Shown here is a 45-nucleotide sequence from Ooceraea biroi, a member of the family "nuoG RNA".
The source organism's lineage runs through Eukaryota, Arthropoda, Hexapoda, Endopterygota and Ooceraea.
RNA sequence: GAAUUAUGAUUACCGCCAGUCUCAGAGGACUGGAAUAUUUGGAAG
Numbered sequence: 001g002a003a004u005u006a007u008g009a010u011u012a013c014c015g016c017c018a019g020u021c022u023c024a025g026a027g028g029a030c031u032g033g034a035a036u037a038u039u040u041g042g043a044a045g
Stems, first nucleotide, its partner, number of pairs: 016033006

The match comes from Rfam's covariance-model search (36 bits).